FMN riboswitch aptamer (RFN element): a 128-nucleotide RNA from Firmicutes bacterium CAG:145. A search with the family's covariance model found it, with a score of 122 bits. Gene Ontology term of the family: FMN binding. Pairs were carried over by alignment from the consensus structure, which is taken from published work. The organism belongs to Bacillota, within Bacteria.
[Rfam]
RNA sequence: AAUCUGUUUCAGGGCGAGGUGAAAUUCCUCACCGGCGGUAUAGUCCGCGAGCGAAGAAGAUAAGAUUUUUUCGCUGAUCAGGUGAAAUUCCUGAACCGACGGUAUAGUCCGGAUGGGAGAAACACAAA
Numbered sequence: 001a002a003u004c005u006g007u008u009u010c011a012g013g014g015c016g017a018g019g020u021g022a023a024a025u026u027c028c029u030c031a032c033c034g035g036c037g038g039u040a041u042a043g044u045c046c047g048c049g050a051g052c053g054a055a056g057a058a059g060a061u062a063a064g065a066u067u068u069u070u071u072c073g074c075u076g077a078u079c080a081g082g083u084g085a086a087a088u089u090c091c092u093g094a095a096c097c098g099a100c101g102g103u104a105u106a107g108u109c110c111g112g113a114u115g116g117g118a119g120a121a122a123c124a125c126a127a128a
Stems, first nucleotide, its partner, number of pairs: 003126001005124006017029003031108002033098002035048004043096002051074003078094005100111003